[Rfam]
The family of this 99-nucleotide RNA from Miscanthus lutarioriparius is "Small nucleolar RNA snoR31/Z110/Z27". Gene Ontology terms of the family: RNA processing and nucleolus. NCBI's taxonomy places the organism under Eukaryota, Magnoliopsida, Poales, Saccharinae, Miscanthus. The family's RNA type in Rfam is C/D-box small nucleolar RNA. It scores 66 bits against the family's covariance model. The base pairs follow the family's consensus structure, which was predicted with PFOLD. This family contains several related snoRNAs including R31, Z27 and Z110. The literature on the family includes a 2001 paper in J Mol Biol by Barneche et al., "Identification of 66 box C/D snoRNAs in Arabidopsis thaliana: extensive gene duplications generated multiple isoforms predicting new ribosomal RNA 2'-O-methylation sites". Rfam 15.1 lists 571 matches to the family in 198 species.

RNA sequence: UGUAUCAGACGAUGAAACCUUGAAAUAAUCUUAGGACACCUUCUGACACAGUGCUGGUAGCUCUGUGAGUGAGAAGGUAAUUCUUUUUCUGAUGAUAAU
Numbered sequence: 001u002g003u004a005u006c007a008g009a010c011g012a013u014g015a016a017a018c019c020u021u022g023a024a025a026u027a028a029u030c031u032u033a034g035g036a037c038a039c040c041u042u043c044u045g046a047c048a049c050a051g052u053g054c055u056g057g058u059a060g061c062u063c064u065g066u067g068a069g070u071g072a073g074a075a076g077g078u079a080a081u082u083c084u085u086u087u088u089c090u091g092a093u094g095a096u097a098a099u
Stems, first nucleotide, its partner, number of pairs: 003097005044050002